[Rfam]
RNA sequence: AUAAGUGUGAAGCCAAAUUCCGUGGCACCGGGAAGCGGGGGAACCGUUUUGGGUGAAUUGAUCUUGUUUCGGAGGGAUCAUAGGGGAAACCUUCUACCGAAUCCUUAAGCUAACCUCGCAGGCAUUGGAAGGGGACAAA
Numbered sequence: 001a002u003a004a005g006u007g008u009g010a011a012g013c014c015a016a017a018u019u020c021c022g023u024g025g026c027a028c029c030g031g032g033a034a035g036c037g038g039g040g041g042a043a044c045c046g047u048u049u050u051g052g053g054u055g056a057a058u059u060g061a062u063c064u065u066g067u068u069u070c071g072g073a074g075g076g077a078u079c080a081u082a083g084g085g086g087a088a089a090c091c092u093u094c095u096a097c098c099g100a101a102u103c104c105u106u107a108a109g110c111u112a113a114c115c116u117c118g119c120a121g122g123c124a125u126u127g128g129a130a131g132g133g134g135a136c137a138a139a
Stems, first nucleotide, its partner, number of pairs: 012123003018034003035119006051104003059080007083098002086095001
RNA: c-di-AMP riboswitch aptamer (ydaO/yuaA leader)